RNA sequence: AUUUUUGUAUUUUAAAUACUCACGUUUGUCGACACGCUUGGUAGGGUGCCUUUCUUGAUUAAUUUGAAGGGGGGGUUGCCAAGGGGGGCAGGCGGAGGCGUAAC
Numbered sequence: 001a002u003u004u005u006u007g008u009a010u011u012u013u014a015a016a017u018a019c020u021c022a023c024g025u026u027u028g029u030c031g032a033c034a035c036g037c038u039u040g041g042u043a044g045g046g047u048g049c050c051u052u053u054c055u056u057g058a059u060u061a062a063u064u065u066g067a068a069g070g071g072g073g074g075g076u077u078g079c080c081a082a083g084g085g086g087g088g089c090a091g092g093c094g095g096a097g098g099c100g101u102a103a104c
Stems, first nucleotide, its partner, number of pairs: 023094008035085001037083007048076009
RNA: t44 RNA